[Rfam]
RNA sequence: GGGGGAAUUCUUAGAACCCCAUACGAUGCGUGUUAAUAGUGUUGUCUUUGGCCGGGCAACAUGGUUAGGAAAAGC
Numbered sequence: 001g002g003g004g005g006a007a008u009u010c011u012u013a014g015a016a017c018c019c020c021a022u023a024c025g026a027u028g029c030g031u032g033u034u035a036a037u038a039g040u041g042u043u044g045u046c047u048u049u050g051g052c053c054g055g056g057c058a059a060c061a062u063g064g065u066u067a068g069g070a071a072a073a074g075c
Base pairs, nucleotide, nucleotide: 001020002019003018004017033068034067035066036065037064039062040061041060042059043058044057045056046055047054